A member of the RNA family "Small nucleolar RNA snoR99" from Castanea mollissima, 98 nucleotides long. Its family is annotated with nucleolus and RNA processing in the Gene Ontology. Pairs were carried over by alignment from the consensus structure, which was predicted with WAR. The literature on the family includes a 2002 paper in Curr Biol by Marker et al., "Experimental RNomics: identification of 140 candidates for small non-messenger RNAs in the plant Arabidopsis thaliana".
[Rfam]
RNA sequence: UUGCUGCUUUGAACAAGUCCCCUCAUAUUAAUCCAUCUGAUUCACUUUGUCAGCUGUCUUAUUCGUUGUCUAGCUGAUCAUUUUAGGGUGGUACAUGC
Numbered sequence: 001u002u003g004c005u006g007c008u009u010u011g012a013a014c015a016a017g018u019c020c021c022c023u024c025a026u027a028u029u030a031a032u033c034c035a036u037c038u039g040a041u042u043c044a045c046u047u048u049g050u051c052a053g054c055u056g057u058c059u060u061a062u063u064c065g066u067u068g069u070c071u072a073g074c075u076g077a078u079c080a081u082u083u084u085a086g087g088g089u090g091g092u093a094c095a096u097g098c
Stems, first nucleotide, its partner, number of pairs: 033091005049078008